About this RNA
Rfam assigns this 100-nucleotide RNA sequence from Parambassis ranga to the family "Z30 small nucleolar RNA". Rfam classes the family as a C/D-box small nucleolar RNA. A search with the family's covariance model found it, with a score of 77 bits. Lineage of the source: Eukaryota > Actinopterygii > Eurypterygia > Acanthomorphata > Parambassis. Rfam links the family to the GO terms nucleolus and RNA processing.
Nucleotides: 100
Base pairs, nucleotide, nucleotide: 003098004097038057039056040055041054
Number, partner (000 for none) and nucleotide at each position: 001000c002000u003098g004097c005000u006000g007000u008000g009000a010000u011000g012000a013000g014000c015000u016000u017000c018000g019000a020000g021000c022000u023000g024000a025000c026000u027000g028000a029000u030000c031000u032000g033000g034000u035000a036000u037000u038057g039056c040055u041054u042000c043000c044000c045000u046000c047000c048000g049000g050000g051000g052000a053000a054041a055040a056039g057038c058000u059000c060000u061000g062000a063000c064000c065000a066000g067000g068000g069000a070000a071000u072000g073000a074000u075000c076000c077000c078000g079000g080000c081000u082000u083000a084000a085000u086000c087000u088000u089000c090000u091000c092000u093000c094000u095000g096000a097004g098003c099000a100000g